The family of this 105-nucleotide RNA sequence from Bacteroidales bacterium CF is "Bacteroidales small SRP". A reference for the family is Ryan et al. (2020), "A high-resolution transcriptome map identifies small RNA regulation of metabolism in the gut microbe Bacteroides thetaiotaomicron", Nat Commun. The source organism's lineage runs through Bacteria, Pseudomonadati, Bacteroidota, Bacteroidia and Bacteroidales. Gene Ontology terms of the family: SRP-dependent cotranslational protein targeting to membrane, signal sequence recognition and signal recognition particle, plasma membrane targeting.
RNA sequence: UGUGCGGGGUAAGUCUUAUACGACCAGCUCCCACUGAACUCCCCCAGGGCCGGAAGGCAGCAAGGGCAGGUGGUUGUAGCGGUGCGAUAUAUUCAGCUUGCCCCU
Numbered sequence: 001u002g003u004g005c006g007g008g009g010u011a012a013g014u015c016u017u018a019u020a021c022g023a024c025c026a027g028c029u030c031c032c033a034c035u036g037a038a039c040u041c042c043c044c045c046a047g048g049g050c051c052g053g054a055a056g057g058c059a060g061c062a063a064g065g066g067c068a069g070g071u072g073g074u075u076g077u078a079g080c081g082g083u084g085c086g087a088u089a090u091a092u093u094c095a096g097c098u099u100g101c102c103c104c105u
Stems, first nucleotide, its partner, number of pairs: 007103008017091004021086002023083002